[Rfam]
RNA sequence: CAUGAAGCAACACGCGUUUUUCUUCGCUUUCUUUUUUACCUUCCCCUGAACGGGAGGCGUGUCGUCGUACAGAAAGCAAGCGAAGACGAACUAACAGGCCUCCCACUCCGGGGGGCCUUUUUUAU
Numbered sequence: 001c002a003u004g005a006a007g008c009a010a011c012a013c014g015c016g017u018u019u020u021u022c023u024u025c026g027c028u029u030u031c032u033u034u035u036u037u038a039c040c041u042u043c044c045c046c047u048g049a050a051c052g053g054g055a056g057g058c059g060u061g062u063c064g065u066c067g068u069a070c071a072g073a074a075a076g077c078a079a080g081c082g083a084a085g086a087c088g089a090a091c092u093a094a095c096a097g098g099c100c101u102c103c104c105a106c107u108c109c110g111g112g113g114g115g116c117c118u119u120u121u122u123u124a125u
Stems, first nucleotide, its partner, number of pairs: 016091004021086009031076004036071001042055004056066004096118009
A member of the RNA family "Phenylalanine leader peptide" from Cronobacter sakazakii, 125 nucleotides long. NCBI's taxonomy places the organism under Bacteria, Pseudomonadati, Enterobacterales, Cronobacter, Cronobacter sakazakii. It is one of the family's seed sequences. By type it is a cis-regulatory leader. For this family Rfam cites "Nucleotide sequence of the leader region of the phenylalanine operon of Escherichia coli" (Zurawski et al., Proc Natl Acad Sci U S A, 1978). Its family is annotated with cellular amino acid metabolic process in the Gene Ontology.